This 155-nucleotide sequence from Onychostoma macrolepis belongs to the Rfam family "U1 spliceosomal RNA".
Rfam links the family to the GO terms U1 snRNP, pre-mRNA 5'-splice site binding and mRNA 5'-splice site recognition.
The base pairs follow the family's consensus structure, which is taken from published work.
It scores 97 bits against the family's covariance model.
Taxonomically the source falls in Onychostoma (Eukaryota, Neopterygii, Osteoglossocephalai, Cypriniformes).
Its Rfam clan is "U1 clan".
The literature on the family includes a 1997 paper in Nucleic Acids Res by Zwieb, "The uRNA database".
Nucleotides: 155
Base pairs, nucleotide, nucleotide: 012116013115014114015113016048017047018046020044021043023042024041025040027038050086051085052084054083056080058079060076061075062073063072087111088110090107092104093103094102132155133154134153135152139149141147
Number, partner (000 for none) and nucleotide at each position: 001000a002000u003000a004000c005000u006000u007000a008000c009000c010000u011000g012116g013115c014114a015113g016048g017047g018046g019000a020044g021043a022000c023042a024041c025040c026000a027038u028000g029000a030000u031000c032000a033000a034000g035000a036000a037000g038027g039000c040025g041024g042023u043021u044020c045000a046018c047017c048016c049000a050086g051085g052084g053000c054083g055000a056080g057000g058079c059000u060076c061075g062073c063072c064000a065000u066000u067000g068000c069000a070000c071000c072063g073062g074000a075061c076060g077000c078000a079058g080056c081000g082000a083054c084052c085051c086050c087111c088110g089000c090107a091000c092104c093103c094102c095000c096000a097000a098000a099000u100000g101000u102094g103093g104092g105000a106000a107090u108000c109000u110088c111087g112000a113015c114014u115013g116012c117000a118000u119000a120000a121000u122000u123000u124000a125000u126000g127000g128000u129000a130000g131000u132155g133154g134153g135152g136000a137000u138000c139149a140000u141147g142000u143000c144000a145000c146000g147141c148000c149139u150000u151000c152135c153134c154133c155132u